The family of this 114-nucleotide sequence from Geotrypetes seraphini is "Potassium channel RNA editing signal". A search with the family's covariance model found it, with a score of 104 bits. The base pairs follow the family's consensus structure, which is taken from published work. This family represents a group of sequences related to the human potassium channel Kv1.1 hairpin element which directs the efficient modification of an adenosine to inosine by an adenosine deaminase acting on RNA (ADAR). The ADAR modification causes an isoleucine/valine recoding event which lies in the ion-conducting pore of the potassium channel. It is thought that this editing event targets the process of fast inactivation and allows a more rapid recovery from inactivation at negative potentials.

RNA sequence: GUCGGCUAUGGAGACAUGUGUCCCAUGACUGUGGGGGGUAAGAUUGUGGGCACUCUCUGUGCUAUUGCAGGGGUUUUAACUAUCGCCCUCCCAGUCCCAGUCAUAGUAUCCAAC
Numbered sequence: 001g002u003c004g005g006c007u008a009u010g011g012a013g014a015c016a017u018g019u020g021u022c023c024c025a026u027g028a029c030u031g032u033g034g035g036g037g038g039u040a041a042g043a044u045u046g047u048g049g050g051c052a053c054u055c056u057c058u059g060u061g062c063u064a065u066u067g068c069a070g071g072g073g074u075u076u077u078a079a080c081u082a083u084c085g086c087c088c089u090c091c092c093a094g095u096c097c098c099a100g101u102c103a104u105a106g107u108a109u110c111c112a113a114c
Stems, first nucleotide, its partner, number of pairs: 001114002004111002007108003011104001013102003018097001020095002037077002040074001049063003
Description
Lineage of the source: Eukaryota > Vertebrata > Gnathostomata > Tetrapoda > Geotrypetes. For this family Rfam cites "Control of human potassium channel inactivation by editing of a small mRNA hairpin" (Bhalla et al., Nat Struct Mol Biol, 2004).